Rfam assigns this 69-nucleotide sequence from Siminovitchia fortis to the family "Listeria sRNA sbrA". It is annotated as a small RNA.
Nucleotides: 069
Base pairs, nucleotide, nucleotide: 004035005034006033007032008031009030043062044061045060046059047058048057049056050055
Number, partner (000 for none) and nucleotide at each position: 001000a002000u003000a004035c005034a006033u007032c008031u009030a010000g011000u012000c013000c014000a015000u016000a017000c018000c019000c020000c021000u022000a023000a024000a025000c026000u027000c028000c029000c030009u031008a032007g033006a034005u035004g036000u037000u038000u039000u040000a041000u042000u043062g044061g045060a046059c047058a048057g049056c050055c051000a052000a053000a054000g055050g056049g057048c058047u059046g060045u061044c062043c063000c064000u065000u066000u067000u068000u069000a